Overview: The family of this 95-nucleotide RNA sequence is "TPP riboswitch aptamer (THI element)". A search with the family's covariance model found it, with a score of 72 bits. A reference for the family is Rodionov et al. (2002), "Comparative genomics of thiamin biosynthesis in procaryotes. New genes and regulatory mechanisms", J Biol Chem. The base pairs follow the family's consensus structure, which is taken from published work.
RNA sequence: UCACCGGACACGGGGUGCCCCGCACAGGGGCUGAGAACACACCCGUCGAACCUGAACCAGUUAGCACUGGCGGAGGGAUGUCUUCAUGUCAUUGC
Numbered sequence: 001u002c003a004c005c006g007g008a009c010a011c012g013g014g015g016u017g018c019c020c021c022g023c024a025c026a027g028g029g030g031c032u033g034a035g036a037a038c039a040c041a042c043c044c045g046u047c048g049a050a051c052c053u054g055a056a057c058c059a060g061u062u063a064g065c066a067c068u069g070g071c072g073g074a075g076g077g078a079u080g081u082c083u084u085c086a087u088g089u090c091a092u093u094g095c
Base pairs, nucleotide, nucleotide: 006083007082008081009080010079011045012044013043014042016039017031018030019029020028021027051076052075053074057070058069059068060067